Rfam assigns this 90-nucleotide sequence from Cellulomonas flavigena to the family "ZMP/ZTP riboswitch aptamer (pfl RNA motif)". The match comes from Rfam's covariance-model search (54 bits).
RNA sequence: UGUGCGGGUCGCGACUGGCGCAGCAGGUGGGGCACCACCGGGGAGCGACGCAGCAGCUGGACCAACGGGUCGGACGCCUGGGCCCACGGU
Numbered sequence: 001u002g003u004g005c006g007g008g009u010c011g012c013g014a015c016u017g018g019c020g021c022a023g024c025a026g027g028u029g030g031g032g033c034a035c036c037a038c039c040g041g042g043g044a045g046c047g048a049c050g051c052a053g054c055a056g057c058u059g060g061a062c063c064a065a066c067g068g069g070u071c072g073g074a075c076g077c078c079u080g081g082g083c084c085c086a087c088g089g090u
Stems, first nucleotide, its partner, number of pairs: 003055003006051001008049005015042002017078004027038004067085005